[Rfam]
RNA sequence: GGUUGGAGCAUUUAAAGCUUUCAAGAUAUGCUUAUUUGGGUCAAUAAGC
Numbered sequence: 001g002g003u004u005g006g007a008g009c010a011u012u013u014a015a016a017g018c019u020u021u022c023a024a025g026a027u028a029u030g031c032u033u034a035u036u037u038g039g040g041u042c043a044a045u046a047a048g049c
Stems, first nucleotide, its partner, number of pairs: 003024003006020004030049007
RNA: Na+ riboswitch aptamer (DUF1646)